TPP riboswitch aptamer (THI element): a 95-nucleotide RNA. It scores 65 bits against the family's covariance model. Its family is annotated with thiamine pyrophosphate binding in the Gene Ontology. The literature on the family includes a 2002 paper in J Biol Chem by Rodionov et al., "Comparative genomics of thiamin biosynthesis in procaryotes. New genes and regulatory mechanisms". About the family: Vitamin B(1) in its active form thiamin pyrophosphate (TPP) is an essential coenzyme that is synthesised by coupling of pyrimidine and thiazole moieties in bacteria. The previously detected thiamin-regulatory element, thi box was extended, resulting in a new, highly conserved RNA secondary structure, the THI element, which is widely distributed in eubacteria and also occurs in some archaea.
[Rfam]
RNA sequence: GUACCAGACACGGGGUGCCCCGCACGAGGGCUGAGAUCACACCCGUCGAACCUGAACCAGUUAGCACUGGCGGAGGGAUGUCAGCCAAUGUCGUU
Numbered sequence: 001g002u003a004c005c006a007g008a009c010a011c012g013g014g015g016u017g018c019c020c021c022g023c024a025c026g027a028g029g030g031c032u033g034a035g036a037u038c039a040c041a042c043c044c045g046u047c048g049a050a051c052c053u054g055a056a057c058c059a060g061u062u063a064g065c066a067c068u069g070g071c072g073g074a075g076g077g078a079u080g081u082c083a084g085c086c087a088a089u090g091u092c093g094u095u
Stems, first nucleotide, its partner, number of pairs: 007082004011045004016039001017031004051076003057070004